Shown here is a 164-nucleotide RNA from Cricetibacter osteomyelitidis, a member of the family "Molybdenum/Tungsten riboswitch aptamer (Moco RNA motif)". Rfam 15.1 lists 1,248 matches to the family in 836 species. Gene Ontology terms of the family: regulation of gene expression, tungstate binding and molybdenum ion binding. Lineage of the source: Bacteria > Pseudomonadati > Pseudomonadota > Pasteurellales > Cricetibacter.
[Rfam]
RNA sequence: ACUCGCAUAAACAACCGAGCUUGUGGAUCUAAGUUGUGUGAAUCGAAACUGAUUGUCGCAAUAUGAUUGCAAUGCCAAUGCCGAUUUGAUUAUCGGUGUUCAGGGAUAAUGUUGGAAACGGCUUGUCCUCUCAUACUUUAGAAAGGUGUAGAAUGCAAAUUCCU
Numbered sequence: 001a002c003u004c005g006c007a008u009a010a011a012c013a014a015c016c017g018a019g020c021u022u023g024u025g026g027a028u029c030u031a032a033g034u035u036g037u038g039u040g041a042a043u044c045g046a047a048a049c050u051g052a053u054u055g056u057c058g059c060a061a062u063a064u065g066a067u068u069g070c071a072a073u074g075c076c077a078a079u080g081c082c083g084a085u086u087u088g089a090u091u092a093u094c095g096g097u098g099u100u101c102a103g104g105g106a107u108a109a110u111g112u113u114g115g116a117a118a119c120g121g122c123u124u125g126u127c128c129u130c131u132c133a134u135a136c137u138u139u140a141g142a143a144a145g146g147u148g149u150a151g152a153a154u155g156c157a158a159a160u161u162c163c164u
Stems, first nucleotide, its partner, number of pairs: 003158001006155001014147003019075002022072001026068004033062006077100009103129006111122004130141002